[Rfam]
RNA sequence: AAAAAAGGAACGACGGCUAAAGGCGCGACAUCGUGUCGCAACGCCCUCACUAGCACAUCGUGUGCG
Numbered sequence: 001a002a003a004a005a006a007g008g009a010a011c012g013a014c015g016g017c018u019a020a021a022g023g024c025g026c027g028a029c030a031u032c033g034u035g036u037c038g039c040a041a042c043g044c045c046c047u048c049a050c051u052a053g054c055a056c057a058u059c060g061u062g063u064g065c066g
Base pairs, nucleotide, nucleotide: 012048013047015045016044017043025039026038027037028036029035053065054064055063056062